[Rfam]
RNA sequence: UUGAACAUUUAGCAAAACUAGUGAAAACUAGUGACGCAAAGCUUUAGUCUAAGGCGGUUUCCGCUAUGAUUGUCAAGUUGCAAUU
Numbered sequence: 001u002u003g004a005a006c007a008u009u010u011a012g013c014a015a016a017a018c019u020a021g022u023g024a025a026a027a028c029u030a031g032u033g034a035c036g037c038a039a040a041g042c043u044u045u046a047g048u049c050u051a052a053g054g055c056g057g058u059u060u061c062c063g064c065u066a067u068g069a070u071u072g073u074c075a076a077g078u079u080g081c082a083a084u085u
Stems, first nucleotide, its partner, number of pairs: 012037002017032006040079004045075001046073001047070003054064004
Rfam assigns this 85-nucleotide RNA sequence from Parasporobacterium paucivorans to the family "c-di-GMP-I riboswitch aptamer". Its family is annotated with cyclic-di-GMP binding in the Gene Ontology. A search with the family's covariance model found it, with a score of 61 bits. Taxonomically the source falls in Parasporobacterium paucivorans (Bacteria, Bacillota, Clostridia, Lachnospirales). Rfam's curators write: GEMM was predicted in a large-scale screen for bacterial structured RNA regulatory elements.